This 83-nucleotide RNA sequence from Vitis vinifera belongs to the Rfam family "Small nucleolar RNA SNORD24".
Pairs were carried over by alignment from the consensus structure, which was predicted with PFOLD.
The family's RNA type in Rfam is C/D-box small nucleolar RNA.
The match comes from Rfam's covariance-model search (50 bits).
Gene Ontology terms of the family: RNA processing and nucleolus.
A reference for the family is Qu et al. (1995), "U24, a novel intron-encoded small nucleolar RNA with two 12 nt long, phylogenetically conserved complementarities to 28S rRNA", Nucleic Acids Res.
RNA sequence: GGCCCGUGAGGAAUGAUUAAUAUUUGCUACUCUUGAUGGAUGACUCCAUCUGAUGACCACUUUCCACCAAGAUCUCUGAGGCC
Numbered sequence: 001g002g003c004c005c006g007u008g009a010g011g012a013a014u015g016a017u018u019a020a021u022a023u024u025u026g027c028u029a030c031u032c033u034u035g036a037u038g039g040a041u042g043a044c045u046c047c048a049u050c051u052g053a054u055g056a057c058c059a060c061u062u063u064c065c066a067c068c069a070a071g072a073u074c075u076c077u078g079a080g081g082c083c
Stems, first nucleotide, its partner, number of pairs: 001083004